A member of the RNA family "terC RNA" from Methylobacterium sp. BTF04, 64 nucleotides long. It scores 55 bits against the family's covariance model.
RNA sequence: CAUCGGCUGCGGGCCCCUCUGGCGGGAUGCUGCGUGAUGCAUUCCGUGAUGUCGGAGCCGAUGC
Number, nucleotide and partner (000 for none) at each position: 001c000002a000003u000004c000005g000006g058007c057008u056009g000010c054011g053012g052013g000014c000015c000016c000017c000018u000019c000020u000021g000022g047023c046024g045025g044026g043027a042028u041029g040030c000031u000032g000033c000034g000035u000036g000037a000038u000039g000040c029041a028042u027043u026044c025045c024046g023047u022048g000049a000050u000051g000052u012053c011054g010055g000056a008057g007058c006059c000060g000061a000062u000063g000064c000